[Rfam]
RNA: Xanthine riboswitch aptamer (NMT1 RNA)
Organism: Roseicyclus persicicus
Nucleotides: 052
Stems, first nucleotide, its partner, number of pairs: 005048006015037001018039002021035005
Number, partner (000 for none) and nucleotide at each position: 001000u002000u003000u004000c005048g006047g007046a008045g009044u010043a011000g012000a013000a014000g015037c016000u017000g018039g019038c020000a021035g022034g023033g024032g025031c026000a027000c028000g029000c030000c031025g032024c033023c034022c035021c036000g037015g038019g039018u040000c041000a042000u043010u044009g045008c046007u047006c048005c049000c050000u051000u052000c